Rfam assigns this 58-nucleotide RNA sequence from Streptococcus agalactiae to the family "Lacto-rpoB RNA". Rfam classes the family as a cis-regulatory element. Lineage of the source: Bacteria > Bacillati > Lactobacillales > Streptococcus agalactiae > Streptococcus agalactiae serogroup V.
[Rfam]
RNA sequence: AUUUGUCGUCUGUCUAGGUUGAAAUAUUGUCCGACCUAGAUAUACAGCAGUUAAAUCA
Numbered sequence: 001a002u003u004u005g006u007c008g009u010c011u012g013u014c015u016a017g018g019u020u021g022a023a024a025u026a027u028u029g030u031c032c033g034a035c036c037u038a039g040a041u042a043u044a045c046a047g048c049a050g051u052u053a054a055a056u057c058a
Stems, first nucleotide, its partner, number of pairs: 008045002012041010